Shown here is an 85-nucleotide sequence from Pelotomaculum thermopropionicum, a member of the family "c-di-GMP-I riboswitch aptamer". The base pairs follow the family's consensus structure, which is taken from published work. Taxonomically the source falls in Pelotomaculum thermopropionicum (Bacteria, Bacillati, Bacillota, Desulfotomaculaceae).
[Rfam]
RNA sequence: AACUGUAAAAGGCAAACAGUCCGAAAGGGCUGGGCGCAAAACCACGGGCCUAAGGCAUUGCUGCUAUGGUCGCCUGGUUGCCAGU
Numbered sequence: 001a002a003c004u005g006u007a008a009a010a011g012g013c014a015a016a017c018a019g020u021c022c023g024a025a026a027g028g029g030c031u032g033g034g035c036g037c038a039a040a041a042c043c044a045c046g047g048g049c050c051u052a053a054g055g056c057a058u059u060g061c062u063g064c065u066a067u068g069g070u071c072g073c074c075u076g077g078u079u080g081c082c083a084g085u
Base pairs, nucleotide, nucleotide: 012037013036017032018031019030020029021028022027040079041078042077043076046074047073048070049069050068055064056063057062